[Rfam]
RNA sequence: UACUGAUAAGAGCAAACCAGUCGAAAGGCUGGGACGCAAAACUAAAGGGCCUGUAAAAUGGCAGCCAGUUUCCAAA
Numbered sequence: 001u002a003c004u005g006a007u008a009a010g011a012g013c014a015a016a017c018c019a020g021u022c023g024a025a026a027g028g029c030u031g032g033g034a035c036g037c038a039a040a041a042c043u044a045a046a047g048g049g050c051c052u053g054u055a056a057a058a059u060g061g062c063a064g065c066c067a068g069u070u071u072c073c074a075a076a
Base pairs, nucleotide, nucleotide: 012037013036017032018031019030020029021028022027040070041069042068043067047066048065049062050061051060
Annotation:
The record is a 76-nucleotide RNA sequence from Petrocella atlantisensis, which matches "c-di-GMP-I riboswitch aptamer" in Rfam. GEMM was predicted in a large-scale screen for bacterial structured RNA regulatory elements. Lineage of the source: Bacteria > Clostridia > Lachnospirales > Vallitaleaceae > Petrocella. The match comes from Rfam's covariance-model search (65 bits).